[Rfam]
RNA sequence: CCCACCCCUUUCACUUUGCCAAUUGGACUUAAUGUCUUUAUUGGUCAUUCAAGAGGGGCAAAGGAAGUAUCCUCUUAAAACUCAGGGUGACUGAGUGUCUGUCAUGUAACCUGUCAGAGGAAACAAAU
Numbered sequence: 001c002c003c004a005c006c007c008c009u010u011u012c013a014c015u016u017u018g019c020c021a022a023u024u025g026g027a028c029u030u031a032a033u034g035u036c037u038u039u040a041u042u043g044g045u046c047a048u049u050c051a052a053g054a055g056g057g058g059c060a061a062a063g064g065a066a067g068u069a070u071c072c073u074c075u076u077a078a079a080a081c082u083c084a085g086g087g088u089g090a091c092u093g094a095g096u097g098u099c100u101g102u103c104a105u106g107u108a109a110c111c112u113g114u115c116a117g118a119g120g121a122a123a124c125a126a127a128u
Stems, first nucleotide, its partner, number of pairs: 033060005041052004070121006083106001085103002089099003